Lysine riboswitch aptamer: a 181-nucleotide RNA sequence from Evansella caseinilytica. Its family is annotated with lysine biosynthetic process in the Gene Ontology.
[Rfam]
RNA sequence: GUGAUUGGUAGAGGCGCGAAAACCAUUAGUACGUUGUGCGAGAAGAUUGAGCUUCAGUGAACACAGCGGAAAGGGGGAUUCGCCGAAGAAGAGAAGCAGCUCAAACGCCAUCUUCUGGACCUGUGUUGAAUAAAUGCAGGGCUGUCAUACAGCUUUAUUUGUAUGGAGGACUAUCUCACAC
Numbered sequence: 001g002u003g004a005u006u007g008g009u010a011g012a013g014g015c016g017c018g019a020a021a022a023c024c025a026u027u028a029g030u031a032c033g034u035u036g037u038g039c040g041a042g043a044a045g046a047u048u049g050a051g052c053u054u055c056a057g058u059g060a061a062c063a064c065a066g067c068g069g070a071a072a073g074g075g076g077g078a079u080u081c082g083c084c085g086a087a088g089a090a091g092a093g094a095a096g097c098a099g100c101u102c103a104a105a106c107g108c109c110a111u112c113u114u115c116u117g118g119a120c121c122u123g124u125g126u127u128g129a130a131u132a133a134a135u136g137c138a139g140g141g142c143u144g145u146c147a148u149a150c151a152g153c154u155u156u157a158u159u160u161g162u163a164u165g166g167a168g169g170a171c172u173a174u175c176u177c178a179c180a181c
Stems, first nucleotide, its partner, number of pairs: 007175005016083005023076002032068007087116006117143002120140008145166007